[Rfam]
RNA sequence: GAUUUUUCUAUGCACAGAUGGGACGGCGUACGGGGGAUUUUAGGUCCAAUCUGGACCUGGGGUGAAUCGCACAGCGACGGGUGACCUCGUGACCCGAACCCGACAACUAACCUCGGAAGCGAAAACGAGAGGAGAA
Numbered sequence: 001g002a003u004u005u006u007u008c009u010a011u012g013c014a015c016a017g018a019u020g021g022g023a024c025g026g027c028g029u030a031c032g033g034g035g036g037a038u039u040u041u042a043g044g045u046c047c048a049a050u051c052u053g054g055a056c057c058u059g060g061g062g063u064g065a066a067u068c069g070c071a072c073a074g075c076g077a078c079g080g081g082u083g084a085c086c087u088c089g090u091g092a093c094c095c096g097a098a099c100c101c102g103a104c105a106a107c108u109a110a111c112c113u114c115g116g117a118a119g120c121g122a123a124a125a126c127g128a129g130a131g132g133a134g135a136a
Stems, first nucleotide, its partner, number of pairs: 011121003018029003031115005040059001060101003068076003079095004
c-di-AMP riboswitch aptamer (ydaO/yuaA leader): a 136-nucleotide RNA sequence from Paenalicyclobacillus ferrooxydans. Taxonomically the source falls in Paenalicyclobacillus (Bacteria, Bacillati, Bacillota, Caryophanales). The base pairs follow the family's consensus structure. A reference for the family is Barrick et al. (2004), "New RNA motifs suggest an expanded scope for riboswitches in bacterial genetic control", Proc Natl Acad Sci U S A. The match comes from Rfam's covariance-model search (66 bits).